[Rfam]
RNA sequence: AAAGCAGCCCGAAAGGGUGGGUGGUGUCUUCUUAAAUGCUAGUCUUUCGAGGCGACAUCUUCAAAUUGCGGGAAACUCCUAAAGCUCUCAAGUACCGCCUCUAUGCUGAAAAGCGAUAGAGUGCACCAGGUUAAUGGCCUCGGGUAUGGUAAAAAGCUUGAGAGAUGCUACAAUGGACGAUCCGCAGCCAAGUCCUAAGGGCGCAAGCCUAUGGAACAGGUUCAGAGGCUACAUGGAGAUGGGUUUUCUUUCGGGAAAGCUUAAGGUAUAGUCCAGCCUUGUACGAAAGUGCGAG
Numbered sequence: 001a002a003a004g005c006a007g008c009c010c011g012a013a014a015g016g017g018u019g020g021g022u023g024g025u026g027u028c029u030u031c032u033u034a035a036a037u038g039c040u041a042g043u044c045u046u047u048c049g050a051g052g053c054g055a056c057a058u059c060u061u062c063a064a065a066u067u068g069c070g071g072g073a074a075a076c077u078c079c080u081a082a083a084g085c086u087c088u089c090a091a092g093u094a095c096c097g098c099c100u101c102u103a104u105g106c107u108g109a110a111a112a113g114c115g116a117u118a119g120a121g122u123g124c125a126c127c128a129g130g131u132u133a134a135u136g137g138c139c140u141c142g143g144g145u146a147u148g149g150u151a152a153a154a155a156g157c158u159u160g161a162g163a164g165a166u167g168c169u170a171c172a173a174u175g176g177a178c179g180a181u182c183c184g185c186a187g188c189c190a191a192g193u194c195c196u197a198a199g200g201g202c203g204c205a206a207g208c209c210u211a212u213g214g215a216a217c218a219g220g221u222u223c224a225g226a227g228g229c230u231a232c233a234u235g236g237a238g239a240u241g242g243g244u245u246u247u248c249u250u251u252c253g254g255g256a257a258a259g260c261u262u263a264a265g266g267u268a269u270a271g272u273c274c275a276g277c278c279u280u281g282u283a284c285g286a287a288a289g290u291g292c293g294a295g
Base pairs, nucleotide, nucleotide: 001018028038030036056241057240058239059238060237062235063234067186068185069184070183071182072181077177078176079175187221188220193215194214195213200209201208202207225274227273228272229271230270231269243260244259245258246257247256248255249254280293281292282291283290284289
Shown here is a 295-nucleotide RNA from Mycena chlorophos, a member of the family "Group I catalytic intron". A search with the family's covariance model found it, with a score of 102 bits. Rfam describes the family as follows. Group I catalytic introns are large self-splicing ribozymes. They catalyse their own excision from mRNA, tRNA and rRNA precursors in a wide range of organisms. The core secondary structure consists of 9 paired regions (P1-P9). These fold to essentially two domains - the P4-P6 domain (formed from the stacking of P5, P4, P6 and P6a helices) and the P3-P9 domain (formed from the P8, P3, P7 and P9 helices). The family's consensus secondary structure is taken from published work.